Overview
This 99-nucleotide RNA from Streptococcus thermophilus belongs to the Rfam family "Bacterial small signal recognition particle RNA". Taxonomically the source falls in Streptococcus thermophilus (Bacteria, Bacilli, Lactobacillales, Streptococcus). A search with the family's covariance model found it, with a score of 62 bits. Its Rfam clan is "SRP clan". It is annotated as a non-coding RNA gene. The family's consensus secondary structure is taken from published work. The signal recognition particle (SRP) is a universally conserved ribonucleoprotein involved in the co-translational targeting of proteins to membranes.
RNA sequence: AAUAUUUAUCGGAGCAACAUCUGUGCGUGAAGCGGGUCAGGGGAGGAAUCCAGCAGCCCUAAGCGAUUUCAGGUGUGUGCUCUUUUUUUGUGUCGAGGA
Numbered sequence: 001a002a003u004a005u006u007u008a009u010c011g012g013a014g015c016a017a018c019a020u021c022u023g024u025g026c027g028u029g030a031a032g033c034g035g036g037u038c039a040g041g042g043g044a045g046g047a048a049u050c051c052a053g054c055a056g057c058c059c060u061a062a063g064c065g066a067u068u069u070c071a072g073g074u075g076u077g078u079g080c081u082c083u084u085u086u087u088u089u090g091u092g093u094c095g096a097g098g099a
Stems, first nucleotide, its partner, number of pairs: 004093002007090002011083004015077001017076006023068001026065003034059004042051003